The family of this 119-nucleotide RNA sequence from Nicotiana tabacum is "U5 spliceosomal RNA". U5 RNA is a component of both types of known spliceosome. The precise function of this molecule is unknown, though it is known that the 5' loop is required for splice site selection and p220 binding, and that both the 3' stem-loop and the Sm site are important for Sm protein binding and cap methylation. Pairs were carried over by alignment from the consensus structure, which is taken from published work. Gene Ontology terms of the family: U5 snRNP and spliceosomal tri-snRNP complex assembly. A search with the family's covariance model found it, with a score of 46 bits. Taxonomically the source falls in Nicotiana (Eukaryota, Euphyllophyta, Nicotianoideae, Nicotianeae).
RNA sequence: ACCUGCGGUAGAAGAGUAAGGUCAAGCAUUCUUUCUCCUUUUACUAAAGAAUACCGUGUGCACAUUACAAUCAGUGGCAUACGCCAAUUUUUGGAGGGGUUGCUCUCUUUUUGAGAGCU
Numbered sequence: 001a002c003c004u005g006c007g008g009u010a011g012a013a014g015a016g017u018a019a020g021g022u023c024a025a026g027c028a029u030u031c032u033u034u035c036u037c038c039u040u041u042u043a044c045u046a047a048a049g050a051a052u053a054c055c056g057u058g059u060g061c062a063c064a065u066u067a068c069a070a071u072c073a074g075u076g077g078c079a080u081a082c083g084c085c086a087a088u089u090u091u092u093g094g095a096g097g098g099g100u101u102g103c104u105c106u107c108u109u110u111u112u113g114a115g116a117g118c119u
Stems, first nucleotide, its partner, number of pairs: 003077004009067003014061001016059003028052007102118005